[Rfam]
RNA sequence: AUGCCUUAAACUCAUGAGUAAGGAAAAUAACGACCAGGGGUGACGCCCAGGUCCUUGACGCAACAAGCGAGAAUAAUUUUUGAACGGGUAGAGGUCGGAGCCAUGAGCUGACCCGUCUAGUUUGCAGGAUGCUGGCGGCGACUUGAUUUGCCCU
Numbered sequence: 001a002u003g004c005c006u007u008a009a010a011c012u013c014a015u016g017a018g019u020a021a022g023g024a025a026a027a028u029a030a031c032g033a034c035c036a037g038g039g040g041u042g043a044c045g046c047c048c049a050g051g052u053c054c055u056u057g058a059c060g061c062a063a064c065a066a067g068c069g070a071g072a073a074u075a076a077u078u079u080u081u082g083a084a085c086g087g088g089u090a091g092a093g094g095u096c097g098g099a100g101c102c103a104u105g106a107g108c109u110g111a112c113c114c115g116u117c118u119a120g121u122u123u124g125c126a127g128g129a130u131g132c133u134g135g136c137g138g139c140g141a142c143u144u145g146a147u148u149u150g151c152c153c154u
Stems, first nucleotide, its partner, number of pairs: 004023005032053004037048003054071004086153004092149007101138002104135001106133003112128002115125002